RNA sequence: UUUGCCCGGGAUCGCCUCCCACCAGCGCGUUGCGCCCGUGGGGGCGUUUGUG
Number, nucleotide and partner (000 for none) at each position: 001u000002u000003u000004g000005c000006c000007c000008g000009g000010g000011a000012u000013c000014g000015c000016c044017u043018c042019c041020c040021a039022c038023c000024a000025g035026c034027g033028c032029g000030u000031u000032g028033c027034g026035c025036c000037c000038g022039u021040g020041g019042g018043g017044g016045c000046g000047u000048u000049u000050g000051u000052g000
Record summary
A member of the RNA family "ffh sRNA" from Marinovum algicola, 52 nucleotides long. Taxonomically the source falls in Marinovum (Bacteria, Pseudomonadati, Pseudomonadota, Alphaproteobacteria). For this family Rfam cites "Identification of candidate structured RNAs in the marine organism 'Candidatus Pelagibacter ubique'" (Meyer et al., BMC Genomics, 2009). A search with the family's covariance model found it, with a score of 62 bits. Pairs were carried over by alignment from the consensus structure, which is taken from published work.